[Rfam]
The record is a 490-nucleotide RNA sequence from Phanerochaete carnosa, which matches "Nuclear RNase P" in Rfam.
RNA sequence: GCAGUCCAAAGACCGCAAUGCUCGCGCCGCACAGAACACUUUGAAUGUUCAUAUUUGCGAGCGGGGAAGGUCUGAACGUUCCAAAUGCCCCUUCGACGCAUCUUUGCCUGGUGUGGUCUUAAAAUUUAAAAGGUCAACGACGUACCAGAAACUAGGGAGGCACCUGUCAGCCAUCGCGCCGGCCGGUGGCUGACGAUGUAACCUUGAAACUGUCGUGGGUGUGAGUAGUGUUCGAGGGACCGCACCGCUAACACUCUAUCUGGGUCUUUCGCGGGUGGUAACGCGCUCCGAGCCGUCUAGGGCUCAGGCUGCGGGAGCAUUGUUGGUGUCUUUUACGGAGUUCACUCCGUAAAUGUGCUAGCGAGUAGCUCAUGACCAAAGAGGAGAACCUGUGCCGGUGUAAGAUGCCUUGAUCUGGCUCUAUCCUUCAGUUUACUUCGCGGUAGUCUGCUGUAGCAGGCCAACUUGAUUCAGACUACUCUUGUGCUGC
Dot-bracket structure: ((((..(((..(((((.(.(((((.........(((((.......))))).......))))).........[[[[[...(((................((((.......))))((((((...........))))))((((((..............(.............................................).......)))))))))..........................................................................................................................................................................................................................).))))).((((((....))))))........]]]]].......)))..))))
Annotation:
Taxonomically the source falls in Phanerochaete carnosa (Eukaryota, Dikarya, Basidiomycota, Phanerochaetaceae). Rfam classes the family as a ribozyme. The match comes from Rfam's covariance-model search (50 bits). Ribonuclease P (RNase P) is a ubiquitous endoribonuclease, found in archaea, bacteria and eukarya as well as chloroplasts and mitochondria.